[Rfam]
RNA sequence: GUAACCGCAAUGUUAAACUGAAAGAAGGGAGAGGUAAAGACACAACCGCACAAACCGAAACAGGUAAAGAGACAGAGUGUGGCGAUAAGCUUGCUAAGGAACGCGAAAUCCAACUGUCACCGAAAGACACAUCAAGUAGAGCCUGACGGCACGAGUCAAAAGUACAUGCC
Dot-bracket structure: .((((......))))...........((.(...((...(((.(..(((............(((((......((...(((((..(((..((.(........).))...))).................)))))...))...))))).)))...).)))....))...).))
Group II catalytic intron D1-D4-3: a 170-nucleotide RNA sequence from Achromatium sp. WMS2. Its family is annotated with Group II intron splicing in the Gene Ontology. The base pairs follow the family's consensus structure. A search with the family's covariance model found it, with a score of 62 bits.